[Rfam]
RNA sequence: CUCGCGGGACGACCCACGAGUUUCAUGACAACGCCGGGACGACCCGG
Numbered sequence: 001c002u003c004g005c006g007g008g009a010c011g012a013c014c015c016a017c018g019a020g021u022u023u024c025a026u027g028a029c030a031a032c033g034c035c036g037g038g039a040c041g042a043c044c045c046g047g
Stems, first nucleotide, its partner, number of pairs: 001020004006015003034047005